[Rfam]
RNA: ribosomal frameshift site
RNA sequence: GGGGGGACCUAGCGCCCCCCAAAUCAU
Numbered sequence: 001g002g003g004g005g006g007a008c009c010u011a012g013c014g015c016c017c018c019c020c021a022a023a024u025c026a027u
Stems, first nucleotide, its partner, number of pairs: 001020006012027001014025001